[Rfam]
RNA: Ribosomal protein L10 leader
RNA sequence: UAUAAUAUAACAUUUGUACCGUAGACAGCAGGUGCUAGUAUGGCUCGUAGCCACUAGCUUAAUUUCCCGCCGAGGUUCUUGCGAUAAAACUCAAUUAUUUGUAUUGAGGGCAAAAAACCUCCAUGUCUAUGUAUGGAGGUUUUUUGCUUCAUGU
Numbered sequence: 001u002a003u004a005a006u007a008u009a010a011c012a013u014u015u016g017u018a019c020c021g022u023a024g025a026c027a028g029c030a031g032g033u034g035c036u037a038g039u040a041u042g043g044c045u046c047g048u049a050g051c052c053a054c055u056a057g058c059u060u061a062a063u064u065u066c067c068c069g070c071c072g073a074g075g076u077u078c079u080u081g082c083g084a085u086a087a088a089a090c091u092c093a094a095u096u097a098u099u100u101g102u103a104u105u106g107a108g109g110g111c112a113a114a115a116a117a118c119c120u121c122c123a124u125g126u127c128u129a130u131g132u133a134u135g136g137a138g139g140u141u142u143u144u145u146g147c148u149u150c151a152u153g154u
Base pairs, nucleotide, nucleotide: 028070029069031067032066034058035057036056037055038054039053118139119138120137121136122135123134124133125132126131